Shown here is a 138-nucleotide sequence from Clostridium tetani, a member of the family "Ribosomal protein L10 leader".
The family's RNA type in Rfam is cis-regulatory leader.
Rfam's curators put it in the seed alignment.
This family is a putative r-protein leader autoregulatory structure found in B. subtilis and other low-GC Gram-positive bacteria. It is located in the 5' untranslated regions of mRNAs encoding ribosomal proteins L10 and L12 (rplJ-rplL). A Rho-independent transcription terminator structure that is probably involved in regulation is included at the 3' end.
Lineage of the source: Bacteria > Bacillati > Bacillota > Clostridia > Clostridium tetani.
Gene Ontology term of the family: regulation of gene expression.

RNA sequence: AGAAUUAAAGAAAAUAUACCGUAGACAGUAGGUGCAUUUUGCAUAACGGAUUAUCCAACCUACCGAGGGUUCCAAUAUAUUACUUUUAGAGAGUAUUGGUUUCUCCAUGUCUACGGAGGAACCUUUAAUUUUUUAUAA
Numbered sequence: 001a002g003a004a005u006u007a008a009a010g011a012a013a014a015u016a017u018a019c020c021g022u023a024g025a026c027a028g029u030a031g032g033u034g035c036a037u038u039u040u041g042c043a044u045a046a047c048g049g050a051u052u053a054u055c056c057a058a059c060c061u062a063c064c065g066a067g068g069g070u071u072c073c074a075a076u077a078u079a080u081u082a083c084u085u086u087u088a089g090a091g092a093g094u095a096u097u098g099g100u101u102u103c104u105c106c107a108u109g110u111c112u113a114c115g116g117a118g119g120a121a122c123c124u125u126u127a128a129u130u131u132u133u134u135a136u137a138a
Stems, first nucleotide, its partner, number of pairs: 028063006034042003098123009